[Rfam]
RNA sequence: CUUCAACGACCCCAGCCACAGAGGACGCUCCUCCGACCGCCCCUGCCCGUAGGUGGCCAGCAGCGCGUUCGCCUC
Dot-bracket structure: ...............((.....))......(......((...(((.(((....))).)))...)).....)....

ASpks TB sRNA: a 75-nucleotide sequence from Streptomyces sp. TS71-3. Pairs were carried over by alignment from the consensus structure, which is taken from published work.